Description:
The record is a 209-nucleotide RNA from Pukyongiella litopenaei, which matches "permuted transfer-messenger RNA" in Rfam. Rfam describes the family as follows. Bacterial tmRNA, also known as 10Sa RNA or SsrA, is named for its dual tRNA and mRNA-like properties. Its role is to liberate the mRNA from a stalled ribosome. To accomplish this part of the tmRNA is used as a reading frame that ends in a translation stop signal. The broken mRNA is replaced in the ribosome by the tmRNA and translation of the tmRNA leads to addition of a proteolysis tag to the incomplete protein enabling recognition by a protease. The match comes from Rfam's covariance-model search (149 bits). Lineage of the source: Bacteria > Pseudomonadota > Rhodobacterales > Paracoccaceae > Pukyongiella. A reference for the family is Laslett et al. (2002), "BRUCE: a program for the detection of transfer-messenger RNA genes in nucleotide sequences", Nucleic Acids Res. The family's RNA type in Rfam is non-coding RNA gene. The base pairs follow the family's consensus structure, which is taken from published work.
RNA sequence: GGACAUAAACGCGCUCGAAAUAAGCGGAUCGGACCCGGGGGCGGUACCCGGCGGCUCCACCAAAAUCCCUUGUUGGGGGAUCAUGGGGCCGAAACAGGAUCGACGAACGUGUAAAGGGGUUUGCUUUGUCCCGGCGGGGUACCACCGUUAUCGGUCCGUAAAGCAUAAUUGCCAACAACAAUCGUGCUCCGGUUGCUGUCGCCGCUUAA
Numbered sequence: 001g002g003a004c005a006u007a008a009a010c011g012c013g014c015u016c017g018a019a020a021u022a023a024g025c026g027g028a029u030c031g032g033a034c035c036c037g038g039g040g041g042c043g044g045u046a047c048c049c050g051g052c053g054g055c056u057c058c059a060c061c062a063a064a065a066u067c068c069c070u071u072g073u074u075g076g077g078g079g080a081u082c083a084u085g086g087g088g089c090c091g092a093a094a095c096a097g098g099a100u101c102g103a104c105g106a107a108c109g110u111g112u113a114a115a116g117g118g119g120u121u122u123g124c125u126u127u128g129u130c131c132c133g134g135c136g137g138g139g140u141a142c143c144a145c146c147g148u149u150a151u152c153g154g155u156c157c158g159u160a161a162a163g164c165a166u167a168a169u170u171g172c173c174a175a176c177a178a179c180a181a182u183c184g185u186g187c188u189c190c191g192g193u194u195g196c197u198g199u200c201g202c203c204g205c206u207u208a209a
Stems, first nucleotide, its partner, number of pairs: 001131005013120004025109002029106003035051005052091007132147003